Rfam assigns this 54-nucleotide sequence from Sinocyclocheilus grahami to the family "UnaL2 LINE 3' element". Lineage of the source: Eukaryota > Teleostomi > Cypriniphysae > Cyprininae > Sinocyclocheilus. Pairs were carried over by alignment from the consensus structure, which is taken from published work. Rfam describes the family as follows. The eel long interspersed element (LINE) UnaL2 and its partner short interspersed element (SINE) share a conserved 3' tail containing a stem-loop that is critical for their retrotransposition. By type it is a cis-regulatory element.
[Rfam]
Nucleotides: 054
Stems, first nucleotide, its partner, number of pairs: 013043001014041003021035005
Number, partner (000 for none) and nucleotide at each position: 001000a002000u003000u004000g005000u006000c007000c008000u009000c010000a011000u012000u013043u014041g015040u016039a017000a018000g019000u020000c021035g022034c023033u024032u025031u026000u027000g028000a029000u030000a031025a032024a033023a034022g035021c036000a037000u038000c039016u040015g041014c042000u043013a044000a045000a046000u047000u048000a049000c050000u051000g052000a053000a054000u